[Rfam]
RNA: Group II catalytic intron D1-D4-2
Organism: Leadbetterella byssophila
RNA sequence: GGCAGUUUGGCCUGCCGUUGGGGAUGACAGACAUACCCAACAAACUACUCCGUGGUGCUGCCUUUCCGAAAGGGGGUGGUAUUGAGCGACGAGAGAAAAGGUAGUAAUGUAACUAUCAAGU
Numbered sequence: 001g002g003c004a005g006u007u008u009g010g011c012c013u014g015c016c017g018u019u020g021g022g023g024a025u026g027a028c029a030g031a032c033a034u035a036c037c038c039a040a041c042a043a044a045c046u047a048c049u050c051c052g053u054g055g056u057g058c059u060g061c062c063u064u065u066c067c068g069a070a071a072g073g074g075g076g077u078g079g080u081a082u083u084g085a086g087c088g089a090c091g092a093g094a095g096a097a098a099a100g101g102u103a104g105u106a107a108u109g110u111a112a113c114u115a116u117c118a119a120g121u
Base pairs, nucleotide, nucleotide: 001016002015003014004013005012017041018040019039020038021037022036024034025033026032046120048095049094051091052090053089054083055082057080058079059078061076062075063074064073100117101116102115103114104113105112